[Rfam]
RNA: Purine riboswitch aptamer
RNA sequence: UUUAUUUAUUUAAUAUUCGCUUAUAUAGAUUUGAAGAUAAGGUUCAAAUGUCUCUACUUAGCUCCCGUAAAGAGCUAACCGCUAUAAGUGAAUUACUUUUUUGU
Numbered sequence: 001u002u003u004a005u006u007u008a009u010u011u012a013a014u015a016u017u018c019g020c021u022u023a024u025a026u027a028g029a030u031u032u033g034a035a036g037a038u039a040a041g042g043u044u045c046a047a048a049u050g051u052c053u054c055u056a057c058u059u060a061g062c063u064c065c066c067g068u069a070a071a072g073a074g075c076u077a078a079c080c081g082c083u084a085u086a087a088g089u090g091a092a093u094u095a096c097u098u099u100u101u102u103g104u
Stems, first nucleotide, its partner, number of pairs: 018090008029049007058078007